Shown here is an 87-nucleotide RNA sequence from Momordica charantia, a member of the family "mir-156 microRNA precursor family". A search with the family's covariance model found it, with a score of 68 bits. From the family's description: This family represents the plant microRNA (miRNA) precursor mir-156. NCBI's taxonomy places the organism under Eukaryota, Gunneridae, rosids, fabids, Momordica. The family's consensus secondary structure was predicted with PFOLD. Its family is annotated with miRNA-mediated post-transcriptional gene silencing and RISC complex in the Gene Ontology.

[Rfam]
RNA sequence: GUGACAGAAGAGAGUGAGCACGCAUGAUUAUUUUCUUGCAUGUUUGCUCGUGCAAGAUAUUCUGCGUGCUUUCUCUCUUUCUGUCAC
Numbered sequence: 001g002u003g004a005c006a007g008a009a010g011a012g013a014g015u016g017a018g019c020a021c022g023c024a025u026g027a028u029u030a031u032u033u034u035c036u037u038g039c040a041u042g043u044u045u046g047c048u049c050g051u052g053c054a055a056g057a058u059a060u061u062c063u064g065c066g067u068g069c070u071u072u073c074u075c076u077c078u079u080u081c082u083g084u085c086a087c
Stems, first nucleotide, its partner, number of pairs: 001087009010077005016071006023064002
Dot-bracket structure: ((((((((((((((.((((((.((......................................)).)))))).))))).)))))))))